This 306-nucleotide sequence from Pangasianodon hypophthalmus belongs to the Rfam family "Nuclear RNase P". Its family is annotated with tRNA processing, ribonuclease P complex and ribonuclease P activity in the Gene Ontology. The family has 116 seed sequences and 3,848 matches in Rfam 15.1. It is annotated as a ribozyme. The family's consensus secondary structure is taken from published work.
[Rfam]
Nucleotides: 306
Stems, first nucleotide, its partner, number of pairs: 001306004007300003012261005021059004034048005069290005079238004089103005104120006121234007142220003262278006
Number, partner (000 for none) and nucleotide at each position: 001306g002305u003304g004303g005000g006000a007300g008299g009298a010000a011000g012261c013260u014259c015258a016257c017000u018000g019000u020000a021059g022058a023057g024056g025000u026000c027000a028000c029000a030000a031000a032000c033000a034048g035047g036046g037045u038044g039000u040000u041000a042000a043000u044038c045037a046036c047035u048034c049000c050000c051000u052000a053000g054000a055000a056024c057023c058022u059021u060000g061000g062000g063000g064000a065000a066000g067000g068000u069290c070289u071288g072287a073286g074000a075000c076000a077000a078000g079238a080237g081236c082235c083000a084000a085000u086000c087000a088000c089103u090102g091101u092100c093099c094000u095000u096000g097000c098000a099093g100092g101091g102090c103089a104120u105119c106118a107117c108116c109115u110000g111000a112000u113000c114000c115109a116108g117107g118106u119105g120104a121234g122233u123232g124231a125230g126229c127228a128000c129000a130000c131000a132000g133000a134000a135000a136000c137000c138000c139000u140000g141000g142220g143219c144218u145000u146000g147000g148000a149000g150000u151000g152000g153000u154000g155000u156000g157000u158000c159000u160000u161000c162000a163000u164000a165000a166000g167000a168000g169000a170000a171000g172000u173000c174000a175000g176000u177000c178000a179000g180000c181000u182000c183000u184000g185000u186000a187000a188000a189000g190000u191000a192000g193000u194000g195000c196000u197000g198000c199000u200000g201000a202000u203000g204000g205000a206000u207000a208000u209000g210000a211000c212000a213000u214000c215000a216000c217000u218144a219143g220142c221000u222000u223000g224000g225000a226000a227000a228127u229126g230125c231124u232123c233122a234121u235082g236081g237080c238079u239000g240000g241000c242000a243000a244000c245000a246000g247000a248000g249000u250000u251000c252000a253000a254000u255000g256000u257016g258015u259014g260013a261012g262278c263277u264276g265275g266274a267273g268000c269000u270000g271000a272000u273267u274266u275265c276264c277263a278262g279000a280000a281000c282000c283000c284000a285000a286073u287072u288071c289070a290069g291000a292000c293000u294000a295000c296000u297000c298009u299008c300007c301000u302000c303004c304003c305002a306001c

Ribonuclease P (RNase P) is a ubiquitous endoribonuclease, found in archaea, bacteria and eukarya as well as chloroplasts and mitochondria. Its best characterised activity is the generation of mature 5'-ends of tRNAs by cleaving the 5'-leader elements of precursor-tRNAs. Lineage of the source: Eukaryota > Clupeocephala > Otophysi > Pangasiidae > Pangasianodon. Clan: RNaseP clan.